[Rfam]
Shown here is a 99-nucleotide RNA sequence from Miscanthus lutarioriparius, a member of the family "MIR5565 microRNA precursor family". The family's consensus secondary structure was predicted with RNAalifold.

RNA sequence: AUAGUCGGAUUCGCAUUAAUCCACAUGUGUUGGGGUGGCUUGGAGUGGAACUUAAACUAAAUUCCACCCUAACACAUGUGGAUUGAGGUGAAUCCGACA
Numbered sequence: 001a002u003a004g005u006c007g008g009a010u011u012c013g014c015a016u017u018a019a020u021c022c023a024c025a026u027g028u029g030u031u032g033g034g035g036u037g038g039c040u041u042g043g044a045g046u047g048g049a050a051c052u053u054a055a056a057c058u059a060a061a062u063u064c065c066a067c068c069c070u071a072a073c074a075c076a077u078g079u080g081g082a083u084u085g086a087g088g089u090g091a092a093u094c095c096g097a098c099a
Stems, first nucleotide, its partner, number of pairs: 004098011016086017043069001045067003